Rfam assigns this 74-nucleotide RNA from Alteromonas confluentis to the family "c-di-GMP-I riboswitch aptamer". The match comes from Rfam's covariance-model search (64 bits).
RNA sequence: CUUACGAAAAGGCAAACCUCCAGUAAUGAAGGGACGCAAAGCCACGGGUCUUCUAAGAUAGCCGGGUUGUCGGU
Numbered sequence: 001c002u003u004a005c006g007a008a009a010a011g012g013c014a015a016a017c018c019u020c021c022a023g024u025a026a027u028g029a030a031g032g033g034a035c036g037c038a039a040a041g042c043c044a045c046g047g048g049u050c051u052u053c054u055a056a057g058a059u060a061g062c063c064g065g066g067u068u069g070u071c072g073g074u
Stems, first nucleotide, its partner, number of pairs: 012037002017032003021028002040068004045064003048059003
NCBI's taxonomy places the organism under Bacteria, Pseudomonadati, Gammaproteobacteria, Alteromonadales, Alteromonas.
Its family is annotated with cyclic-di-GMP binding in the Gene Ontology.